Shown here is an 82-nucleotide RNA sequence from Eutrema salsugineum, a member of the family "Small nucleolar RNA R21". It scores 61 bits against the family's covariance model. The family's RNA type in Rfam is C/D-box small nucleolar RNA. A reference for the family is Barneche et al. (2001), "Identification of 66 box C/D snoRNAs in Arabidopsis thaliana: extensive gene duplications generated multiple isoforms predicting new ribosomal RNA 2'-O-methylation sites", J Mol Biol. Rfam 15.1 lists 472 matches to the family in 146 species.
RNA sequence: AAUCCCUACGAUGACUUUUUAUGAGUAAAAAAUGUUAAAAGUAGUCUGAUCUUAUUGAUGAAACUUUCAGCUCUGAGGGAUU
Numbered sequence: 001a002a003u004c005c006c007u008a009c010g011a012u013g014a015c016u017u018u019u020u021a022u023g024a025g026u027a028a029a030a031a032a033u034g035u036u037a038a039a040a041g042u043a044g045u046c047u048g049a050u051c052u053u054a055u056u057g058a059u060g061a062a063a064c065u066u067u068c069a070g071c072u073c074u075g076a077g078g079g080a081u082u
Stems, first nucleotide, its partner, number of pairs: 001082006